Record summary:
The record is a 165-nucleotide RNA from Lacicoccus alkaliphilus, which matches "Lysine riboswitch aptamer" in Rfam. Riboswitches are metabolite binding domains within certain messenger RNAs that serve as precision sensors for their corresponding targets. It scores 92 bits against the family's covariance model.

[Rfam]
RNA sequence: UAGAAAAGUAGAGGUUGCGACCAUUAUCAGUAUGGAUGACGAGCAGGCAUGCGUCCGAGUCAUUUUGAAAGGAAUGGUGGCCGAAGGGGGUUUUUGGCGGAAGACUUCCUGGGACCGGGUUUAAGAGGCCCGGUACUGUCAUUAUGAUGAUGCGCUACACACGAA
Numbered sequence: 001u002a003g004a005a006a007a008g009u010a011g012a013g014g015u016u017g018c019g020a021c022c023a024u025u026a027u028c029a030g031u032a033u034g035g036a037u038g039a040c041g042a043g044c045a046g047g048c049a050u051g052c053g054u055c056c057g058a059g060u061c062a063u064u065u066u067g068a069a070a071g072g073a074a075u076g077g078u079g080g081c082c083g084a085a086g087g088g089g090g091u092u093u094u095u096g097g098c099g100g101a102a103g104a105c106u107u108c109c110u111g112g113g114a115c116c117g118g119g120u121u122u123a124a125g126a127g128g129c130c131c132g133g134u135a136c137u138g139u140c141a142u143u144a145u146g147a148u149g150a151u152g153c154g155c156u157a158c159a160c161a162c163g164a165a
Stems, first nucleotide, its partner, number of pairs: 008158004017081002020078006034065007085110011111137002114134008139150004